[Rfam]
RNA sequence: ACUGCCCUAGGCAACACCCCUGUAGGGGGGCGUAUGAGCCUGGCGGGUUACCCCGGCCAUA
Number, nucleotide and partner (000 for none) at each position: 001a000002c000003u000004g044005c043006c042007c000008u000009a041010g040011g039012c038013a000014a000015c000016a000017c030018c029019c028020c027021u026022g000023u000024a000025g000026g021027g020028g019029g018030g017031c000032g000033u000034a000035u000036g000037a000038g012039c011040c010041u009042g006043g005044c004045g000046g000047g000048u000049u000050a000051c000052c000053c000054c000055g000056g000057c000058c000059a000060u000061a000
RNA: Pyrobaculum sRNA 205
Organism: Pyrobaculum neutrophilum